[Rfam]
RNA sequence: CCUUUUGGAUGAAAAAUUGUCCCUAUGAGUGGUGACAUUCAUAGAAAACUCCUUUAAUUCAGUGAAACUCUCAAAUGAGACAAUACUGAGCGAAGCCUUUAACAAAGGAACGUGCAACGACUAGCUGAAAAGCGUAGGGUGUAAGCUAAUGACAUCCGAAAUGGGGAGCAUCUUAUAUAAAAGAUGAUGAUAUAGUCUGGUCUGUAUAGUGAUAUACAG
Numbered sequence: 001c002c003u004u005u006u007g008g009a010u011g012a013a014a015a016a017u018u019g020u021c022c023c024u025a026u027g028a029g030u031g032g033u034g035a036c037a038u039u040c041a042u043a044g045a046a047a048a049c050u051c052c053u054u055u056a057a058u059u060c061a062g063u064g065a066a067a068c069u070c071u072c073a074a075a076u077g078a079g080a081c082a083a084u085a086c087u088g089a090g091c092g093a094a095g096c097c098u099u100u101a102a103c104a105a106a107g108g109a110a111c112g113u114g115c116a117a118c119g120a121c122u123a124g125c126u127g128a129a130a131a132g133c134g135u136a137g138g139g140u141g142u143a144a145g146c147u148a149a150u151g152a153c154a155u156c157c158g159a160a161a162u163g164g165g166g167a168g169c170a171u172c173u174u175a176u177a178u179a180a181a182a183g184a185u186g187a188u189g190a191u192a193u194a195g196u197c198u199g200g201u202c203u204g205u206a207u208a209g210u211g212a213u214a215u216a217c218a219g
Stems, first nucleotide, its partner, number of pairs: 007022006028039003049168004054163001059089006069080004090113002096107001098105001117198001119197005171184004204217005